Source information: Rfam assigns this 77-nucleotide RNA sequence from Xenopus tropicalis to the family "Small nucleolar RNA snR60/Z15/Z230/Z193/J17". Its Rfam clan is "SNORD77 clan". The family's RNA type in Rfam is C/D-box small nucleolar RNA. Rfam links the family to the GO terms RNA processing and nucleolus. It scores 56 bits against the family's covariance model. The pairing is the family consensus, mapped onto this sequence.
[Rfam]
RNA sequence: UUGACACAAAUGAUGAACACAUAGUUCAGCAGAUGAACCCUGAUGAACUUGUCUUUCGCUCCUAUCUGAUGUGUCAG
Numbered sequence: 001u002u003g004a005c006a007c008a009a010a011u012g013a014u015g016a017a018c019a020c021a022u023a024g025u026u027c028a029g030c031a032g033a034u035g036a037a038c039c040c041u042g043a044u045g046a047a048c049u050u051g052u053c054u055u056u057c058g059c060u061c062c063u064a065u066c067u068g069a070u071g072u073g074u075c076a077g
Stems, first nucleotide, its partner, number of pairs: 004074005